[Rfam]
RNA sequence: CCAAAGGCUCUUUUAAGAGCCACCCACUUUCUCACAAAAGAGCUUG
Numbered sequence: 001c002c003a004a005a006g007g008c009u010c011u012u013u014u015a016a017g018a019g020c021c022a023c024c025c026a027c028u029u030u031c032u033c034a035c036a037a038a039a040g041a042g043c044u045u046g
Stems, first nucleotide, its partner, number of pairs: 006021006
RNA: Histone 3' UTR stem-loop